[Rfam]
RNA: Small Cajal body specific RNA 4
RNA sequence: ACUGGAGGACUAAUCAGGCCAAGUCUGAAGCGUGAGACUCGGGUCACAGAGGCCUCCAAAAAGUAAAGAGGGAUGGAGAGAGCAGCCUUGCUUGCAGCAAAGCAAAGCGCCCACUGCGCCGUCCCACACUC
Numbered sequence: 001a002c003u004g005g006a007g008g009a010c011u012a013a014u015c016a017g018g019c020c021a022a023g024u025c026u027g028a029a030g031c032g033u034g035a036g037a038c039u040c041g042g043g044u045c046a047c048a049g050a051g052g053c054c055u056c057c058a059a060a061a062a063g064u065a066a067a068g069a070g071g072g073a074u075g076g077a078g079a080g081a082g083c084a085g086c087c088u089u090g091c092u093u094g095c096a097g098c099a100a101a102g103c104a105a106a107g108c109g110c111c112c113a114c115u116g117c118g119c120c121g122u123c124c125c126a127c128a129c130u131c
Stems, first nucleotide, its partner, number of pairs: 002063002004057005017044001019042001022039005070124003081115002085110002088107002093104003